[Rfam]
RNA sequence: UGCCGGCGGGCGUAAUAACGCAGCUGCAGGAGAGGCGACCUCGUAAAAAGCGUA
Numbered sequence: 001u002g003c004c005g006g007c008g009g010g011c012g013u014a015a016u017a018a019c020g021c022a023g024c025u026g027c028a029g030g031a032g033a034g035g036c037g038a039c040c041u042c043g044u045a046a047a048a049a050g051c052g053u054a
Stems, first nucleotide, its partner, number of pairs: 001012004006021003030042003
GP20-b RNA: a 54-nucleotide RNA sequence. Rfam classes the family as a cis-regulatory element.